Shown here is a 61-nucleotide RNA sequence, a member of the family "DUF2815 RNA". By type it is a small RNA. The sequence is in the family's curated seed alignment.
RNA sequence: CGGGUAGACGAGCUGGCCCCGAUUGAAGUCCAGUUCUAAUGUUUAAAAAGGUAAUAUCAUG
Numbered sequence: 001c002g003g004g005u006a007g008a009c010g011a012g013c014u015g016g017c018c019c020c021g022a023u024u025g026a027a028g029u030c031c032a033g034u035u036c037u038a039a040u041g042u043u044u045a046a047a048a049a050g051g052u053a054a055u056a057u058c059a060u061g
Stems, first nucleotide, its partner, number of pairs: 001021004010036007